[Rfam]
RNA: SAM riboswitch aptamer (S box leader)
RNA sequence: GAUUUAUAAAGAAGAGGGGAGAGAGCAGGCUCAAUGAACCUCUAGCAACCACGGUUUCUGCCGAAAGGUGCUAACACCUGCCCAUUGUUUGGGACCUAUAAAUA
Numbered sequence: 001g002a003u004u005u006a007u008a009a010a011g012a013a014g015a016g017g018g019g020a021g022a023g024a025g026c027a028g029g030c031u032c033a034a035u036g037a038a039c040c041u042c043u044a045g046c047a048a049c050c051a052c053g054g055u056u057u058c059u060g061c062c063g064a065a066a067g068g069u070g071c072u073a074a075c076a077c078c079u080g081c082c083c084a085u086u087g088u089u090u091g092g093g094a095c096c097u098a099u100a101a102a103u104a
Stems, first nucleotide, its partner, number of pairs: 002103007013043005021032003026080004044072004049068002052063003081093004